[Rfam]
Description:
Shown here is a 127-nucleotide sequence from Nannospalax galili, a member of the family "Small nucleolar RNA SNORA33". Lineage of the source: Eukaryota > Craniata > Dipnotetrapodomorpha > Eutheria > Nannospalax. Rfam describes the family as follows. ACA33 is a member of the H/ACA class of snoRNA that guide the sites of modification of uridines to pseudouridines. A search with the family's covariance model found it, with a score of 74 bits.
RNA sequence: AUGUUUGUCUGAUCUGCUUUUCUGACUUUGUAUCUGCAGAGAGCUAGAAAGGCUGGUAAUAUUAAGGCUGUGUAGACAAGCCUUAAAGACACUGUAGUCGUUAAGGUCCCUGAGAAUGGGUAUAAUA
Numbered sequence: 001a002u003g004u005u006u007g008u009c010u011g012a013u014c015u016g017c018u019u020u021u022c023u024g025a026c027u028u029u030g031u032a033u034c035u036g037c038a039g040a041g042a043g044c045u046a047g048a049a050a051g052g053c054u055g056g057u058a059a060u061a062u063u064a065a066g067g068c069u070g071u072g073u074a075g076a077c078a079a080g081c082c083u084u085a086a087a088g089a090c091a092c093u094g095u096a097g098u099c100g101u102u103a104a105g106g107u108c109c110c111u112g113a114g115a116a117u118g119g120g121u122a123u124a125a126u127a
Stems, first nucleotide, its partner, number of pairs: 013040005068119003080107007088099003